[Rfam]
Bacillaceae-1 RNA: a 64-nucleotide RNA sequence from Alteribacillus persepolensis. The base pairs follow the family's consensus structure, which is taken from published work. It is annotated as a small RNA. The organism belongs to Alteribacillus, within Bacteria.
RNA sequence: AAAGAAGGAAAUUCGGCUAAAAGCAUCACAUCCUGUGGCAACACCGAAGGAGGAAACAGGUUUU
Numbered sequence: 001a002a003a004g005a006a007g008g009a010a011a012u013u014c015g016g017c018u019a020a021a022a023g024c025a026u027c028a029c030a031u032c033c034u035g036u037g038g039c040a041a042c043a044c045c046g047a048a049g050g051a052g053g054a055a056a057c058a059g060g061u062u063u064u
Stems, first nucleotide, its partner, number of pairs: 012048005026038004053064004